[Rfam]
RNA sequence: CCCGGUCAACCCUGUACUCGGAUCGUCCGGCACGUUCCUGCCGGGAUGGGAUGUGGAU
Numbered sequence: 001c002c003c004g005g006u007c008a009a010c011c012c013u014g015u016a017c018u019c020g021g022a023u024c025g026u027c028c029g030g031c032a033c034g035u036u037c038c039u040g041c042c043g044g045g046a047u048g049g050g051a052u053g054u055g056g057a058u
Base pairs, nucleotide, nucleotide: 010050011049012048014047015046027044028043029042030041031040032039
Dot-bracket structure: .........(((.((...........((((((......)))))).)))))........
msiK RNA: a 58-nucleotide RNA sequence from Nocardia bovistercoris.
The base pairs follow the family's consensus structure, which is taken from published work.